[Rfam]
RNA sequence: CCUGCCGAAGUUUCCCUCAGGAUAGCAGGGGUCAAUAUAGUUUUAUGUGGUCAAGCGAAUGAUUAGAGGUCUUGGGGUUGCAACAACCUUAACCUAUUCUCAAACUCUAAAUAUGUAAGAUAGAGGUCCUGGUACUUUCCUGACCAGGCCUCAGAAAUAGUGACCCCUAGUGGGCCAUUUUUGGUAAGCAGAACUGGCGAUGCGGGAUGAACCGAAAGCCGGGUUAAAGUGCCCAAGUCUCCGCUCAUGUAGAUACCAGAAAAGGUGUUGGUUCAUCCAGACAGCAGGACGGUGGCCAUGGAAGUUGGAAUCCGCUAAGGAGUGUGUAACAACUCACCUGCCGAAUGAACUAGCCCUGAAAAUGGAUGGCGCUGAAGCGGAGCACUUAUACCCGGCCCCUCCCCCAGGGUUGUUGGGGAGGGUGUAGGCAGGCGCGGGGGUUGCGCUGAAGGUCCGAGGGUGAUCCGGACUGGAGCGGCCCCUGGUGCAGAU
Numbered sequence: 001c002c003u004g005c006c007g008a009a010g011u012u013u014c015c016c017u018c019a020g021g022a023u024a025g026c027a028g029g030g031g032u033c034a035a036u037a038u039a040g041u042u043u044u045a046u047g048u049g050g051u052c053a054a055g056c057g058a059a060u061g062a063u064u065a066g067a068g069g070u071c072u073u074g075g076g077g078u079u080g081c082a083a084c085a086a087c088c089u090u091a092a093c094c095u096a097u098u099c100u101c102a103a104a105c106u107c108u109a110a111a112u113a114u115g116u117a118a119g120a121u122a123g124a125g126g127u128c129c130u131g132g133u134a135c136u137u138u139c140c141u142g143a144c145c146a147g148g149c150c151u152c153a154g155a156a157a158u159a160g161u162g163a164c165c166c167c168u169a170g171u172g173g174g175c176c177a178u179u180u181u182u183g184g185u186a187a188g189c190a191g192a193a194c195u196g197g198c199g200a201u202g203c204g205g206g207a208u209g210a211a212c213c214g215a216a217a218g219c220c221g222g223g224u225u226a227a228a229g230u231g232c233c234c235a236a237g238u239c240u241c242c243g244c245u246c247a248u249g250u251a252g253a254u255a256c257c258a259g260a261a262a263a264g265g266u267g268u269u270g271g272u273u274c275a276u277c278c279a280g281a282c283a284g285c286a287g288g289a290c291g292g293u294g295g296c297c298a299u300g301g302a303a304g305u306u307g308g309a310a311u312c313c314g315c316u317a318a319g320g321a322g323u324g325u326g327u328a329a330c331a332a333c334u335c336a337c338c339u340g341c342c343g344a345a346u347g348a349a350c351u352a353g354c355c356c357u358g359a360a361a362a363u364g365g366a367u368g369g370c371g372c373u374g375a376a377g378c379g380g381a382g383c384a385c386u387u388a389u390a391c392c393c394g395g396c397c398c399c400u401c402c403c404c405c406a407g408g409g410u411u412g413u414u415g416g417g418g419a420g421g422g423u424g425u426a427g428g429c430a431g432g433c434g435c436g437g438g439g440g441u442u443g444c445g446c447u448g449a450a451g452g453u454c455c456g457a458g459g460g461u462g463a464u465c466c467g468g469a470c471u472g473g474a475g476c477g478g479c480c481c482c483u484g485g486u487g488c489a490g491a492u
Stems, first nucleotide, its partner, number of pairs: 001432006011024001013022003027168007041120008053108001054106002060102003065097001067095003072092006079085001125151002128148006174198004179193005203214003218396005224390001228386003237383001239382001242379003263357003267354010284341005290314003296308002315319001320335001324333002397422008433487001435484010451471002458465002
Rfam assigns this 492-nucleotide part of an RNA from Dimargaris cristalligena to the family "Eukaryotic large subunit ribosomal RNA". The base pairs follow the family's consensus structure, which is taken from published work. Taxonomically the source falls in Dimargaris (Eukaryota, Opisthokonta, Kickxellomycota, Dimargaritales).